A member of the RNA family "mir-393 microRNA precursor family" from Beta vulgaris, 81 nucleotides long. Its family is annotated with miRNA-mediated post-transcriptional gene silencing and RISC complex in the Gene Ontology. The source organism's lineage runs through Eukaryota, Magnoliopsida, Pentapetalae, Caryophyllales and Beta vulgaris. It scores 65 bits against the family's covariance model.
RNA sequence: GAAGGAUAAAUCCAAAGGGAUUGCAUGAUCCAAACGAACUUUAGCAAGAAGGAUCAAUGCGAUCCCUUUGGAUUCCUCCUU
Numbered sequence: 001g002a003a004g005g006a007u008a009a010a011u012c013c014a015a016a017g018g019g020a021u022u023g024c025a026u027g028a029u030c031c032a033a034a035c036g037a038a039c040u041u042u043a044g045c046a047a048g049a050a051g052g053a054u055c056a057a058u059g060c061g062a063u064c065c066c067u068u069u070g071g072a073u074u075c076c077u078c079c080u081u
Stems, first nucleotide, its partner, number of pairs: 002081005009074013023060003026056006035048001